[Rfam]
RNA: U1 spliceosomal RNA
Organism: Myotis lucifugus
RNA sequence: CUACUUGCCUGGCAGGGAAGAUAACAUAAUCACGAAGGUGGUUUUCCCAGAGCGAGCUUAUCCAUUGCACUCUGGAUGUGCUGACCCCUGGAAUUUCUCUAAAUGUGGAAAAAUUGACUGCAUAGUUUGUUGCAGUGGGGGACUAUGUUCACGCCCCCCCCCA
Numbered sequence: 001c002u003a004c005u006u007g008c009c010u011g012g013c014a015g016g017g018a019a020g021a022u023a024a025c026a027u028a029a030u031c032a033c034g035a036a037g038g039u040g041g042u043u044u045u046c047c048c049a050g051a052g053c054g055a056g057c058u059u060a061u062c063c064a065u066u067g068c069a070c071u072c073u074g075g076a077u078g079u080g081c082u083g084a085c086c087c088c089u090g091g092a093a094u095u096u097c098u099c100u101a102a103a104u105g106u107g108g109a110a111a112a113a114u115u116g117a118c119u120g121c122a123u124a125g126u127u128u129g130u131u132g133c134a135g136u137g138g139g140g141g142a143c144u145a146u147g148u149u150c151a152c153g154c155c156c157c158c159c160c161c162c163a
Base pairs, nucleotide, nucleotide: 012121013120014119015118016048017047019045020044021043023042025040026039027038049089050088052086054085055082056081057080059078060077061076062075063074092115093114094112095110096109098108099107137162138161139160140159141158146153147152